[Rfam]
RNA sequence: UUCGUGGCAAGCCCGGCAAGGGAUGGCAUCAUCCGUUUUUUUAACGGAGACCAGAAGCCUGUGUUCGGCUUUUAGUGCUAUCCCGGAGAAGGUCUGAGACUGAAGCCGAGCUCUCGUUUCGAGAGCUUCAUGUCCUAGACGGACACGUUGUGAAAACGACGGGGAGGGAACAGAAAUCCCUCGGUCCUUGACGGGUGUCGAGGAUCGAGUCUGACGAUUGCGGUUGUGCCGACGAAGGUUUUUCAGAACCUGAGGUCGCGAUCGUUCGGUUGGAAGCUCUCCUGGCUAGCUGAAAGGAGUCCAAUGCUGGAAGUUCGAGUGAUUCACUUGGGCGAACUCAAUUCAGACUACUCUGCUGCGAA
Numbered sequence: 001u002u003c004g005u006g007g008c009a010a011g012c013c014c015g016g017c018a019a020g021g022g023a024u025g026g027c028a029u030c031a032u033c034c035g036u037u038u039u040u041u042u043a044a045c046g047g048a049g050a051c052c053a054g055a056a057g058c059c060u061g062u063g064u065u066c067g068g069c070u071u072u073u074a075g076u077g078c079u080a081u082c083c084c085g086g087a088g089a090a091g092g093u094c095u096g097a098g099a100c101u102g103a104a105g106c107c108g109a110g111c112u113c114u115c116g117u118u119u120c121g122a123g124a125g126c127u128u129c130a131u132g133u134c135c136u137a138g139a140c141g142g143a144c145a146c147g148u149u150g151u152g153a154a155a156a157c158g159a160c161g162g163g164g165a166g167g168g169a170a171c172a173g174a175a176a177u178c179c180c181u182c183g184g185u186c187c188u189u190g191a192c193g194g195g196u197g198u199c200g201a202g203g204a205u206c207g208a209g210u211c212u213g214a215c216g217a218u219u220g221c222g223g224u225u226g227u228g229c230c231g232a233c234g235a236a237g238g239u240u241u242u243u244c245a246g247a248a249c250c251u252g253a254g255g256u257c258g259c260g261a262u263c264g265u266u267c268g269g270u271u272g273g274a275a276g277c278u279c280u281c282c283u284g285g286c287u288a289g290c291u292g293a294a295a296g297g298a299g300u301c302c303a304a305u306g307c308u309g310g311a312a313g314u315u316c317g318a319g320u321g322a323u324u325c326a327c328u329u330g331g332g333c334g335a336a337c338u339c340a341a342u343u344c345a346g347a348c349u350a351c352u353c354u355g356c357u358g359c360g361a362a
Stems, first nucleotide, its partner, number of pairs: 001362004007356003014310001016308001020084010094346005104287004131145005146161006162283007181269003315332002317329003
Background:
This 362-nucleotide sequence from Notodromas monacha belongs to the Rfam family "Nuclear RNase P". Gene Ontology terms of the family: ribonuclease P complex, ribonuclease P activity and tRNA processing. The match comes from Rfam's covariance-model search (112 bits). The organism belongs to Notodromas, within Eukaryota.